[Rfam]
Record summary
This 130-nucleotide RNA sequence from Caenorhabditis elegans belongs to the Rfam family "C. elegans snoRNA ceN100". The family's consensus secondary structure was predicted with RNAalifold. The family's RNA type in Rfam is H/ACA-box small nucleolar RNA.
RNA sequence: ACGAGGUCCAGAGUCACCUUUUCAGCAAAAUGCAGUUAGGGUGCUAGGAUUUCUCGAAAAUGAAAUUGGUCGUAUUAUGCAAGUAGGGCUUGCUUUUGCGCUCCCCGACUUCACCUCAUUCCCAAACAUU
Numbered sequence: 001a002c003g004a005g006g007u008c009c010a011g012a013g014u015c016a017c018c019u020u021u022u023c024a025g026c027a028a029a030a031u032g033c034a035g036u037u038a039g040g041g042u043g044c045u046a047g048g049a050u051u052u053c054u055c056g057a058a059a060a061u062g063a064a065a066u067u068g069g070u071c072g073u074a075u076u077a078u079g080c081a082a083g084u085a086g087g088g089c090u091u092g093c094u095u096u097u098g099c100g101c102u103c104c105c106c107g108a109c110u111u112c113a114c115c116u117c118a119u120u121c122c123c124a125a126a127c128a129u130u
Base pairs, nucleotide, nucleotide: 002056003055004054005053006050007049008048009047012045013044015043016042017041018040019039020038023035025033026032067124068123069122072119073118078113079112081111082110083109084108086106087105088104092101093100
Dot-bracket structure: .((((((((..((.((((((..(.((.....)).)..)))))))).))))..))))..........(((..((....((.((((.(((...((......))..))).))))))....))..)))......

Record summary
The literature on the family includes a 2007 paper in BMC Mol Biol by Jia et al., "Systematic identification of non-coding RNA 2,2,7-trimethylguanosine cap structures in Caenorhabditis elegans". Rfam 15.1 lists 23 matches to the family in 11 species. The source organism's lineage runs through Eukaryota, Eumetazoa, Protostomia, Ecdysozoa and Caenorhabditis.